[Rfam]
RNA sequence: AUCGUAAUACCGCUUAAUCUUAUUGAAAGAACGGGGGACCCAAUUUGCGGAUCCGUUCGCUUGGGGUGAAUUCUAGAUUGAAUAGAAAGGGCUUUGUGUUUCCAAGUCCUAACCCGACAGCUAACCUCGUCAGCGUAAAGGGAACAGUU
Numbered sequence: 001a002u003c004g005u006a007a008u009a010c011c012g013c014u015u016a017a018u019c020u021u022a023u024u025g026a027a028a029g030a031a032c033g034g035g036g037g038a039c040c041c042a043a044u045u046u047g048c049g050g051a052u053c054c055g056u057u058c059g060c061u062u063g064g065g066g067u068g069a070a071u072u073c074u075a076g077a078u079u080g081a082a083u084a085g086a087a088a089g090g091g092c093u094u095u096g097u098g099u100u101u102c103c104a105a106g107u108c109c110u111a112a113c114c115c116g117a118c119a120g121c122u123a124a125c126c127u128c129g130u131c132a133g134c135g136u137a138a139a140g141g142g143a144a145c146a147g148u149u
Stems, first nucleotide, its partner, number of pairs: 011135004018030003031130006041063002064115003072086004089109004
Annotation
Rfam assigns this 149-nucleotide RNA sequence from Peribacillus psychrosaccharolyticus to the family "c-di-AMP riboswitch aptamer (ydaO/yuaA leader)". Rfam links the family to the GO terms regulation of gene expression and cyclic-di-AMP binding. Taxonomically the source falls in Peribacillus (Bacteria, Bacillota, Bacilli, Bacillaceae).